[Rfam]
Source information:
The record is a 252-nucleotide RNA from Enterovirus betacoxsackie, which matches "Picornavirus internal ribosome entry site (IRES)" in Rfam. Rfam links the family to the GO term ribosome binding. Rfam's curators write: This family represents the Picornavirus internal ribosome entry site (IRES).

RNA sequence: AUAGGACGCUCUAAUACAGACAUGGUGUGAAGAGUCUAUUGAGCUAGUUGGUGGUCCUCCGGCCCCUGAAUGCGGCUAAUCCUAACUGCGGAGCACACGCUCACAAGCCAGUGAGUGGUGUGUCGUAAUGGGUAACUCCGCAGCGGAACCGACUACUUUGGGUGUCCGUGUUUCCUUUUAACUUCAUUUUGGCUGCUUAUGGUGACAAUUAAGAAAUUGUUACCAUAUAGCUAUUGGAUUGGCCAUCCGGUG
Numbered sequence: 001a002u003a004g005g006a007c008g009c010u011c012u013a014a015u016a017c018a019g020a021c022a023u024g025g026u027g028u029g030a031a032g033a034g035u036c037u038a039u040u041g042a043g044c045u046a047g048u049u050g051g052u053g054g055u056c057c058u059c060c061g062g063c064c065c066c067u068g069a070a071u072g073c074g075g076c077u078a079a080u081c082c083u084a085a086c087u088g089c090g091g092a093g094c095a096c097a098c099g100c101u102c103a104c105a106a107g108c109c110a111g112u113g114a115g116u117g118g119u120g121u122g123u124c125g126u127a128a129u130g131g132g133u134a135a136c137u138c139c140g141c142a143g144c145g146g147a148a149c150c151g152a153c154u155a156c157u158u159u160g161g162g163u164g165u166c167c168g169u170g171u172u173u174c175c176u177u178u179u180a181a182c183u184u185c186a187u188u189u190u191g192g193c194u195g196c197u198u199a200u201g202g203u204g205a206c207a208a209u210u211a212a213g214a215a216a217u218u219g220u221u222a223c224c225a226u227a228u229a230g231c232u233a234u235u236g237g238a239u240u241g242g243c244c245a246u247c248c249g250g251u252g
Base pairs, nucleotide, nucleotide: 004012005011006010020026021025034196035195042194043193044192045191046190050183051182060168061167062166064162065161066160073151074150075149080147081146082145086143087142088141089140090139091138092137094122095121096120097119098117099116100115101114102113103112104111123131124130125129198227199226200225201224202223203222204221205220206219207218208217209216210215
The family's consensus secondary structure was predicted with PFOLD.